[Rfam]
RNA sequence: GAAUUCCUCAAUUGUAAGUCACUUUGGAUAAAAGUGUCUGCUAAAUUAAUAAUU
Numbered sequence: 001g002a003a004u005u006c007c008u009c010a011a012u013u014g015u016a017a018g019u020c021a022c023u024u025u026g027g028a029u030a031a032a033a034g035u036g037u038c039u040g041c042u043a044a045a046u047u048a049a050u051a052a053u054u
Base pairs, nucleotide, nucleotide: 013043014041015040016039020036021035022034023033024032025031
Record summary
The record is a 54-nucleotide sequence from Sinocyclocheilus anshuiensis, which matches "UnaL2 LINE 3' element" in Rfam. It scores 56 bits against the family's covariance model. On this family, see Baba et al., RNA 2004: "Solution structure of an RNA stem-loop derived from the 3' conserved region of eel LINE UnaL2".